[Rfam]
RNA sequence: CAGUUGGCGGGGACCGGGUAUGCAGGCCCGCUCCCCGUAAUGUACGGAGGUAGAAGAAAGGGCUCCGGCCCUCUCGGUGUUUUGUCUUCGGGGCUUGCGGCCUCCCGUGCGCAGGUUCUAUCCUCAGACACCGGAACACCU
Number, nucleotide and partner (000 for none) at each position: 001c050002a000003g000004u000005u000006g000007g000008c037009g036010g035011g034012g033013a032014c000015c030016g029017g028018g027019u000020a000021u000022g000023c000024a000025g000026g000027c018028c017029c016030g015031c000032u013033c012034c011035c010036c009037g008038u000039a000040a000041u000042g000043u000044a000045c000046g000047g000048a000049g000050g001051u000052a000053g000054a000055a000056g000057a000058a000059a000060g000061g000062g000063c000064u000065c000066c000067g000068g000069c000070c000071c000072u000073c000074u000075c133076g132077g131078u130079g129080u128081u000082u000083u000084g000085u000086c000087u000088u000089c000090g000091g000092g000093g000094c115095u114096u113097g112098c111099g110100g000101c000102c000103u000104c000105c000106c000107g000108u000109g000110c099111g098112c097113a096114g095115g094116u000117u000118c000119u000120a000121u000122c000123c000124u000125c000126a000127g000128a080129c079130a078131c077132c076133g075134g000135a000136a000137c000138a000139c000140c000141u000
Small nucleolar RNA SNORA57: a 141-nucleotide RNA sequence from Rattus norvegicus. Its family is annotated with RNA processing and nucleolus in the Gene Ontology. For this family Rfam cites "Identification of 13 novel human modification guide RNAs" (Vitali et al., Nucleic Acids Res, 2003). The sequence is in the family's curated seed alignment. Rfam's curators write: U99 belongs to the H/ACA class of snoRNAs which are thought to guide the sites of modification of uridines to pseudouridines, the target for this family is unknown.